[Rfam]
Shown here is a 153-nucleotide sequence from Kamptonema sp. PCC 6506, a member of the family "Guanidine-I riboswitch aptamer". Lineage of the source: Bacteria > Bacillati > Oscillatoriales > Microcoleaceae > Kamptonema. The match comes from Rfam's covariance-model search (70 bits). From the family's description: This family represents a conserved RNA structure found upstream of the ykkC and yxkD genes in Bacillus subtilis and related genes in other bacteria. Pairs were carried over by alignment from the consensus structure.
RNA sequence: AUUAGCAGCUUCUAGGGUUCCGAUUUGAACAAAAAAUCUAAUUAAGUUUAGAAAAAUCAAGUGCUGGUCCAAGAGAAGCAAACUGGCAAGCCUAAAUAUUUAAUUUUAAGGAAUAACUAGCCAGUUACACGGCGGGAGAAAAGCCCGGGAGGA
Number, nucleotide and partner (000 for none) at each position: 001a000002u000003u000004a000005g000006c000007a000008g079009c078010u077011u076012c075013u000014a000015g070016g069017g000018u000019u000020c067021c066022g064023a062024u061025u060026u059027g058028a057029a000030c000031a000032a000033a000034a000035a000036a000037u000038c000039u000040a000041a000042u000043u000044a000045a000046g000047u000048u000049u000050a000051g000052a000053a000054a000055a000056a000057u028058c027059a026060a025061g024062u023063g000064c022065u000066g021067g020068u000069c016070c015071a000072a000073g000074a000075g012076a011077a010078g009079c008080a000081a126082a125083c124084u123085g122086g121087c120088a000089a000090g000091c000092c000093u000094a000095a000096a000097u000098a000099u000100u000101u000102a000103a000104u000105u000106u000107u000108a000109a000110g000111g000112a000113a000114u000115a000116a000117c000118u000119a000120g087121c086122c085123a084124g083125u082126u081127a000128c148129a000130c151131g000132g000133c000134g146135g145136g144137a000138g000139a000140a000141a000142a000143g000144c136145c135146c134147g000148g128149g000150a000151g130152g000153a000